RNA sequence: CGCCAGGGUAUGGGUGGUGGUCUGGUAAGCAUGACGCUUAUGAGAUCACGCCUAUAUUCGCUUUG
Numbered sequence: 001c002g003c004c005a006g007g008g009u010a011u012g013g014g015u016g017g018u019g020g021u022c023u024g025g026u027a028a029g030c031a032u033g034a035c036g037c038u039u040a041u042g043a044g045a046u047c048a049c050g051c052c053u054a055u056a057u058u059c060g061c062u063u064u065g
Stems, first nucleotide, its partner, number of pairs: 006059011018048006025041006
A member of the RNA family "mir-5885 microRNA precursor family" from Haemonchus contortus, 65 nucleotides long. The source organism's lineage runs through Eukaryota, Bilateria, Ecdysozoa, Rhabditomorpha and Haemonchus. Its family is annotated with RISC complex and miRNA-mediated post-transcriptional gene silencing in the Gene Ontology.